[Rfam]
RNA sequence: GUUUCAAUGCUAUACAAAAAGAGUAAGCAAGUUUAUGGUGGUGGCUAGCUCUUUCAACAAGAAAGGGUGAUGCCUAUGAAUAUUUUUGUUAGGAUUGCCUGGAAAGGAUAACCCAUGACCGUUUAUGAAGCACUGUCUUUUGCAGUUGCUUUUGCAACCCUGGUGUUGCUAUUGAACAGUCA
Numbered sequence: 001g002u003u004u005c006a007a008u009g010c011u012a013u014a015c016a017a018a019a020a021g022a023g024u025a026a027g028c029a030a031g032u033u034u035a036u037g038g039u040g041g042u043g044g045c046u047a048g049c050u051c052u053u054u055c056a057a058c059a060a061g062a063a064a065g066g067g068u069g070a071u072g073c074c075u076a077u078g079a080a081u082a083u084u085u086u087u088g089u090u091a092g093g094a095u096u097g098c099c100u101g102g103a104a105a106g107g108a109u110a111a112c113c114c115a116u117g118a119c120c121g122u123u124u125a126u127g128a129a130g131c132a133c134u135g136u137c138u139u140u141u142g143c144a145g146u147u148g149c150u151u152u153u154g155c156a157a158c159c160c161u162g163g164u165g166u167u168g169c170u171a172u173u174g175a176a177c178a179g180u181c182a
Base pairs, nucleotide, nucleotide: 041158042157044155045154063100066099067098068097069096070095073092117137118136119135121133122132124130163177164176165172166171
RNA: Listeria sRNA rli28
Organism: Listeria monocytogenes